Nucleotides: 090
Base pairs, nucleotide, nucleotide: 001089002088003087004086005085006084007083010026011025012024028044029043030042031041032040066082067081068080069079070078
Number, partner (000 for none) and nucleotide at each position: 001089g002088g003087a004086g005085c006084g007083g008000u009000g010026g011025c012024c013000g014000a015000g016000u017000g018000g019000u020000c021000u022000a023000a024012g025011g026010c027000g028044c029043a030042c031041g032040c033000c034000u035000g036000g037000a038000g039000a040032g041031c042030g043029u044028g045000u046000g047000g048000g049000c050000g051000c052000g053000c054000a055000a056000a057000a058000c059000g060000u061000g062000c063000c064000u065000c066082g067081u068080g069079g070078g071000u072000u073000c074000g075000a076000a077000u078070c079069c080068c081067a082066c083007c084006c085005g086004c087003u088002c089001c090000g